RNA: Purine riboswitch aptamer
RNA sequence: AAUGUAAAUUAAAUAAGUCGUCGUAUAAUGUCGGGAAUAGGGCCCGUGAGUUUCUACCAAGUUACCGUAAAUAACUUGACUACGAUUGAGGUUUAUAUACGU
Dot-bracket structure: .................(.((((((...(..((((.......))))..)........(((((((.......)))))))..)))))).)..............